[Rfam]
Nucleotides: 076
Base pairs, nucleotide, nucleotide: 012073013044014043015042016041017040018039045059046058047057049055060072061071062070
Number, partner (000 for none) and nucleotide at each position: 001000a002000c003000a004000a005000u006000g007000a008000u009000a010000c011000u012073u013044c014043u015042g016041c017040c018039g019000a020000g021000u022000c023000c024000c025000a026000g027000a028000c029000a030000u031000c032000g033000c034000a035000a036000g037000g038000a039018c040017g041016g042015c043014a044013g045059c046058c047057c048000g049055c050000a051000u052000g053000a054000c055049g056000g057047g058046g059045g060072a061071g062070g063000u064000g065000a066000a067000a068000a069000g070062c071061c072060u073012a074000u075000g076000u

Shown here is a 76-nucleotide RNA sequence, a member of the family "pemK RNA". The family's RNA type in Rfam is cis-regulatory element.